[Rfam]
RNA sequence: ACCUGUUUUGUUGCUGGUCAUCUAGCUACCCGUGCAUGCCUGGAGAAGUGGAGAUUAGCGAAUAAUUUGCAGCGCAGUGACGAUGCAGCAGUCGGCUUCUUUGGCUGUUGAGCACGCGUGGUUAGAUGACCAUCAGCAAACAAGUU
Number, nucleotide and partner (000 for none) at each position: 001a000002c000003c000004u000005g141006u140007u139008u138009u000010g137011u136012u135013g134014c000015u132016g131017g130018u129019c128020a127021u126022c125023u124024a123025g122026c121027u120028a119029c118030c000031c116032g115033u114034g113035c112036a000037u000038g000039c000040c000041u000042g000043g000044a000045g000046a000047a000048g000049u000050g000051g000052a000053g000054a000055u000056u000057a000058g000059c000060g000061a000062a000063u000064a000065a000066u000067u000068u000069g000070c000071a000072g000073c000074g000075c000076a000077g000078u000079g000080a000081c000082g000083a000084u000085g000086c000087a000088g000089c000090a000091g000092u000093c000094g000095g000096c000097u000098u000099c000100u000101u000102u000103g000104g000105c000106u000107g000108u000109u000110g000111a000112g035113c034114a033115c032116g031117c000118g029119u028120g027121g026122u025123u024124a023125g022126a021127u020128g019129a018130c017131c016132a015133u000134c013135a012136g011137c010138a008139a007140a006141c005142a000143a000144g000145u000146u000